A member of the RNA family "Small nucleolar RNA snR80" from Lachnellula occidentalis, 174 nucleotides long.
Its Rfam clan is "SNORA28 clan".
Pairs were carried over by alignment from the consensus structure, which was predicted with WAR.
A reference for the family is Schattner et al. (2004), "Genome-wide searching for pseudouridylation guide snoRNAs: analysis of the Saccharomyces cerevisiae genome", Nucleic Acids Res.
A search with the family's covariance model found it, with a score of 53 bits.
By type it is an H/ACA-box small nucleolar RNA.
[Rfam]
RNA sequence: GCAACUUGUCAAUACUCUGGCCCUUACCCCCAGUCCUUUGAGGACUGGCUCAUCUGUGGUAUUGGCCUAUUUUUGGUACAAGGAGAUUGAUUUUGUCCGAUUACUCACCGCGAUAUCCUCUCUUCCUCUUGGUUGGGCGUGGAUAUAGUGGUCCACAUAUUUAUGGUCAAAAAU
Numbered sequence: 001g002c003a004a005c006u007u008g009u010c011a012a013u014a015c016u017c018u019g020g021c022c023c024u025u026a027c028c029c030c031c032a033g034u035c036c037u038u039u040g041a042g043g044a045c046u047g048g049c050u051c052a053u054c055u056g057u058g059g060u061a062u063u064g065g066c067c068u069a070u071u072u073u074u075g076g077u078a079c080a081a082g083g084a085g086a087u088u089g090a091u092u093u094u095g096u097c098c099g100a101u102u103a104c105u106c107a108c109c110g111c112g113a114u115a116u117c118c119u120c121u122c123u124u125c126c127u128c129u130u131g132g133u134u135g136g137g138c139g140u141g142g143a144u145a146u147a148g149u150g151g152u153c154c155a156c157a158u159a160u161u162u163a164u165g166g167u168c169a170a171a172a173a174u
Stems, first nucleotide, its partner, number of pairs: 006081003019067004025061004030048007094169002097166001108151004113146006